[Rfam]
Rfam assigns this 134-nucleotide RNA from Bittarella massiliensis to the family "Ribosomal protein L10 leader". NCBI's taxonomy places the organism under Bacteria, Bacillati, Bacillota, Eubacteriales, Bittarella (ex Durand et al. 2017). By type it is a cis-regulatory leader. From the family's description: This family is a putative r-protein leader autoregulatory structure found in B. subtilis and other low-GC Gram-positive bacteria. It is located in the 5' untranslated regions of mRNAs encoding ribosomal proteins L10 and L12 (rplJ-rplL). A Rho-independent transcription terminator structure that is probably involved in regulation is included at the 3' end. The base pairs follow the family's consensus structure, which was predicted with CMfinder.

RNA sequence: AACUAUAUACGUUGUCAUUCGUAGACAGCAGGUGCAACUGCGUAAGGGCUCCGGCCCGCCUGCCGAGGAUGAGGCGAGAAAUUUUGAUUUUUCUGCCCUUCCUCUGCGCGAGGAAGGGUUUUUUCUUGCGCGAA
Number, nucleotide and partner (000 for none) at each position: 001a000002a000003c000004u000005a000006u000007a000008u000009a000010c000011g000012u000013u000014g000015u000016c000017a000018u000019u000020c000021g000022u000023a000024g000025a000026c000027a000028g063029c062030a061031g060032g059033u058034g041035c040036a000037a000038c000039u000040g035041c034042g000043u000044a000045a000046g000047g000048g000049c000050u000051c000052c000053g000054g000055c000056c000057c000058g033059c032060c031061u030062g029063c028064c000065g000066a000067g000068g000069a000070u000071g000072a000073g000074g000075c000076g000077a000078g000079a000080a000081a000082u000083u000084u000085u000086g000087a000088u000089u000090u000091u000092u000093c000094u000095g119096c118097c117098c116099u115100u114101c113102c112103u111104c110105u000106g000107c000108g000109c000110g104111a103112g102113g101114a100115a099116g098117g097118g096119u095120u000121u000122u000123u000124u000125c000126u000127u000128g000129c000130g000131c000132g000133a000134a000